[Rfam]
RNA sequence: UGGUGCUCUCAUAUGUAACAGCAACUCCAUGUGGACUACACUGACUUCCAGUGGAGAUGCUGUUACUUUUGAUAG
Numbered sequence: 001u002g003g004u005g006c007u008c009u010c011a012u013a014u015g016u017a018a019c020a021g022c023a024a025c026u027c028c029a030u031g032u033g034g035a036c037u038a039c040a041c042u043g044a045c046u047u048c049c050a051g052u053g054g055a056g057a058u059g060c061u062g063u064u065a066c067u068u069u070u071g072a073u074a075g
Stems, first nucleotide, its partner, number of pairs: 009072003015066008025056006032050003